[Rfam]
RNA: L31-Actinobacteria ribosomal protein leader
RNA sequence: AAGGUUCCGGUUCACGUUGCGCCGUAGGGGCGUGGCGACCCGGUCC
Numbered sequence: 001a002a003g004g005u006u007c008c009g010g011u012u013c014a015c016g017u018u019g020c021g022c023c024g025u026a027g028g029g030g031c032g033u034g035g036c037g038a039c040c041c042g043g044u045c046c
Stems, first nucleotide, its partner, number of pairs: 003046002007043004015037009